[Rfam]
RNA sequence: GUCCGUUCAUUCUUCUUAGGAAGAACGCAUGAAACCACAUCAUGGAACGGGGGUGUGGU
Numbered sequence: 001g002u003c004c005g006u007u008c009a010u011u012c013u014u015c016u017u018a019g020g021a022a023g024a025a026c027g028c029a030u031g032a033a034a035c036c037a038c039a040u041c042a043u044g045g046a047a048c049g050g051g052g053g054u055g056u057g058g059u
Stems, first nucleotide, its partner, number of pairs: 004049005010025005034059006040052002